[Rfam]
RNA sequence: GGUCAUGAGUUCCAGCGUCAAGCCCUGGCUCGCUGGACGGCAACCCUCACGAUGUGGCGGGGUGCCCCAGGUGACGACCCGGUGCGGGCGAUCGGUCCGCGCAAGCACACCGU
Numbered sequence: 001g002g003u004c005a006u007g008a009g010u011u012c013c014a015g016c017g018u019c020a021a022g023c024c025c026u027g028g029c030u031c032g033c034u035g036g037a038c039g040g041c042a043a044c045c046c047u048c049a050c051g052a053u054g055u056g057g058c059g060g061g062g063u064g065c066c067c068c069a070g071g072u073g074a075c076g077a078c079c080c081g082g083u084g085c086g087g088g089c090g091a092u093c094g095g096u097c098c099g100c101g102c103a104a105g106c107a108c109a110c111c112g113u
Base pairs, nucleotide, nucleotide: 001079002078003077004076009038011037012036013035014034015033016032021030022029039066040065041064044062045061046060048057082102083101084100085099086098087097088096089095

The family of this 113-nucleotide RNA sequence from Nakamurella leprariae is "SAM (S-adenosyl methionine) riboswitch aptamer". Its Rfam clan is "SAM clan". For this family Rfam cites "The aptamer core of SAM-IV riboswitches mimics the ligand-binding site of SAM-I riboswitches" (Weinberg et al., RNA, 2008). Pairs were carried over by alignment from the consensus structure, which is taken from published work. The source organism's lineage runs through Bacteria, Actinomycetota, Nakamurellales, Nakamurellaceae and Nakamurella. Rfam's curators write: SAM-IV is a mRNA element that regulates gene expression via direct sensing of S-adenosylmethionine (SAM or AdoMet).